RNA: TPP riboswitch aptamer (THI element)
RNA sequence: UAAAAAGGCUAGGGGUGCUUCCUUAAUCGAAGCUGAGAGAAAACCCUUUGAACCUGAGACCAGCUAAUACUGGCGUAGGAAAGCCCAUGCACUUCCUU
Numbered sequence: 001u002a003a004a005a006a007g008g009c010u011a012g013g014g015g016u017g018c019u020u021c022c023u024u025a026a027u028c029g030a031a032g033c034u035g036a037g038a039g040a041a042a043a044c045c046c047u048u049u050g051a052a053c054c055u056g057a058g059a060c061c062a063g064c065u066a067a068u069a070c071u072g073g074c075g076u077a078g079g080a081a082a083g084c085c086c087a088u089g090c091a092c093u094u095c096c097u098u
Stems, first nucleotide, its partner, number of pairs: 007085004011047004016041001017033005053079004060073004